[Rfam]
RNA: BsrG
RNA sequence: GUAUAAUAGUUUUUACGUACAAUAAAGUCGGCUCACUCCCCAAUAGAUAGGGAGUGAUGCCCAUGACAACAUUCGGAUUACUGAUUGUUGCUAUGUUGUCACAAGACAAAAAGAAAUAGACCAUCCUUGAGCCUCAGAAACUUCUAGGUAAUGGUCUAUUUCACGUGACUAAUUCGAGCCAGCCACUCUAUGAGGGGCGACUAUUGUACUCGACCGUAGGUGUUAGUAGCACUUACG
Numbered sequence: 001g002u003a004u005a006a007u008a009g010u011u012u013u014u015a016c017g018u019a020c021a022a023u024a025a026a027g028u029c030g031g032c033u034c035a036c037u038c039c040c041c042a043a044u045a046g047a048u049a050g051g052g053a054g055u056g057a058u059g060c061c062c063a064u065g066a067c068a069a070c071a072u073u074c075g076g077a078u079u080a081c082u083g084a085u086u087g088u089u090g091c092u093a094u095g096u097u098g099u100c101a102c103a104a105g106a107c108a109a110a111a112a113g114a115a116a117u118a119g120a121c122c123a124u125c126c127u128u129g130a131g132c133c134u135c136a137g138a139a140a141c142u143u144c145u146a147g148g149u150a151a152u153g154g155u156c157u158a159u160u161u162c163a164c165g166u167g168a169c170u171a172a173u174u175c176g177a178g179c180c181a182g183c184c185a186c187u188c189u190a191u192g193a194g195g196g197g198c199g200a201c202u203a204u205u206g207u208a209c210u211c212g213a214c215c216g217u218a219g220g221u222g223u224u225a226g227u228a229g230c231a232c233u234u235a236c237g
Stems, first nucleotide, its partner, number of pairs: 001209005007203003011199001013181001016178001018176001020129003025124001027121003033057008065100007141165001143163001182198003186195001215237010